[Rfam]
RNA: Alphaproteobacterial ar14
Organism: Rhizobium sp. NFR07
RNA sequence: GGAUUUCAGGCGACCCACUCCUCCUCCCGAGGGAAGCCUGAUGGAGCAGCGACACUCCUCCUCCCAGUCGCUGUUCAAUUUUUUCAAAGAGCCUGCCGCACCUCCUCCCGCGGCAGGCUUUUUUG
Numbered sequence: 001g002g003a004u005u006u007c008a009g010g011c012g013a014c015c016c017a018c019u020c021c022u023c024c025u026c027c028c029g030a031g032g033g034a035a036g037c038c039u040g041a042u043g044g045a046g047c048a049g050c051g052a053c054a055c056u057c058c059u060c061c062u063c064c065c066a067g068u069c070g071c072u073g074u075u076c077a078a079u080u081u082u083u084u085c086a087a088a089g090a091g092c093c094u095g096c097c098g099c100a101c102c103u104c105c106u107c108c109c110g111c112g113g114c115a116g117g118c119u120u121u122u123u124u125g
Stems, first nucleotide, its partner, number of pairs: 007040005014033003044076010089120011